[Rfam]
RNA sequence: GCAGCGGCACCUGUGCUGCUGUUUCGCCCACAGUUUUGGGUGAGUUAACUGAUAGAAGGAAGAUAUCGAUG
Numbered sequence: 001g002c003a004g005c006g007g008c009a010c011c012u013g014u015g016c017u018g019c020u021g022u023u024u025c026g027c028c029c030a031c032a033g034u035u036u037u038g039g040g041u042g043a044g045u046u047a048a049c050u051g052a053u054a055g056a057a058g059g060a061a062g063a064u065a066u067c068g069a070u071g
Base pairs, nucleotide, nucleotide: 002021003020004019005018006017007016008015009014025042026041027040028039029038030037
Annotation:
osmY RNA: a 71-nucleotide sequence. The base pairs follow the family's consensus structure, which is taken from published work. Rfam's curators put it in the seed alignment.